[Rfam]
RNA sequence: GCCGGGCGAAGUAACGAGCGCCUGUAACCCGAGUGGGGGCCUUAAUGUGGUUGGACAUCGAUUCGGCCCAUUCGAUCGGACCCGGUGUUGCUAUCUUCUGGCCCGCCCGCUCCAAGCCGCGAGUCGAGCCCCGUGACCUAGGCGAAGGCCCAGACCACGUGGCUCAUAGUGCGGAGGGCACCGCGUGAGGCUGGCUUUACAGAGCAGCGUCUUACCUCCCGCUCUCGGCAGUGGAAGGAUAACGGGCCGGUGCUACCCGGGUCCAACAUGGUCCAAUGGGCCGUCCUCAAUAGGACAACCACUUUU
Numbered sequence: 001g002c003c004g005g006g007c008g009a010a011g012u013a014a015c016g017a018g019c020g021c022c023u024g025u026a027a028c029c030c031g032a033g034u035g036g037g038g039g040c041c042u043u044a045a046u047g048u049g050g051u052u053g054g055a056c057a058u059c060g061a062u063u064c065g066g067c068c069c070a071u072u073c074g075a076u077c078g079g080a081c082c083c084g085g086u087g088u089u090g091c092u093a094u095c096u097u098c099u100g101g102c103c104c105g106c107c108c109g110c111u112c113c114a115a116g117c118c119g120c121g122a123g124u125c126g127a128g129c130c131c132c133g134u135g136a137c138c139u140a141g142g143c144g145a146a147g148g149c150c151c152a153g154a155c156c157a158c159g160u161g162g163c164u165c166a167u168a169g170u171g172c173g174g175a176g177g178g179c180a181c182c183g184c185g186u187g188a189g190g191c192u193g194g195c196u197u198u199a200c201a202g203a204g205c206a207g208c209g210u211c212u213u214a215c216c217u218c219c220c221g222c223u224c225u226c227g228g229c230a231g232u233g234g235a236a237g238g239a240u241a242a243c244g245g246g247c248c249g250g251u252g253c254u255a256c257c258c259g260g261g262u263c264c265a266a267c268a269u270g271g272u273c274c275a276a277u278g279g280g281c282c283g284u285c286c287u288c289a290a291u292a293g294g295a296c297a298a299c300c301a302c303u304u305u306u
Base pairs, nucleotide, nucleotide: 001040002039003038004023005022006021007020008019028037029036030035044305045304047302048301049300050299051298052297053296056293058290060288064283065282066281068279069278070277071276072275074273075272076271077270078264079263080262081261082260083259084258085257087256088255090253092252093251098250099249100248101247102246103245104244105243107238108237111235112234113233114232116229117228118227119226121224122223123222124221126165127164128163129162130161132159133158134157135156138153139152141150142149143148173219174218175217176216177215183210184209185208186207191202192201193200
The record is a 306-nucleotide RNA sequence from Rhamnella rubrinervis, which matches "Plant signal recognition particle RNA" in Rfam. The match comes from Rfam's covariance-model search (241 bits).